[Rfam]
RNA sequence: CAAAUGAUGCUCGGAACUGGAAUUACCAUCUGAACGCGUACCACGCAAAUCGAAGAUACGAUGCCGUGCACAUUACCUCCGCUGUUACUCGGAUGACUGAU
Numbered sequence: 001c002a003a004a005u006g007a008u009g010c011u012c013g014g015a016a017c018u019g020g021a022a023u024u025a026c027c028a029u030c031u032g033a034a035c036g037c038g039u040a041c042c043a044c045g046c047a048a049a050u051c052g053a054a055g056a057u058a059c060g061a062u063g064c065c066g067u068g069c070a071c072a073u074u075a076c077c078u079c080c081g082c083u084g085u086u087a088c089u090c091g092g093a094u095g096a097c098u099g100a101u
Base pairs, nucleotide, nucleotide: 004098005096007094008093010091015086016085017084018081019080020079021078027055029053030052032051033050036046037045038044039043060074061073062072063071
The family of this 101-nucleotide RNA from Trypanosoma vivax is "Small nucleolar RNA TBR12".
Lineage of the source: Eukaryota > Discoba > Metakinetoplastina > Duttonella > Trypanosoma vivax.
TBR12 was one of seventeen snoRNAs identified in Trypanosoma brucei. Together with TBR2, TBR6 and TBR4 it is a part of snoRNA gene cluster that is tandemly repeated. These 4 snoRNA genes are transcribed as a polycistronic RNA transcript.
The family's RNA type in Rfam is C/D-box small nucleolar RNA.
The family's consensus secondary structure was predicted with RNAfold.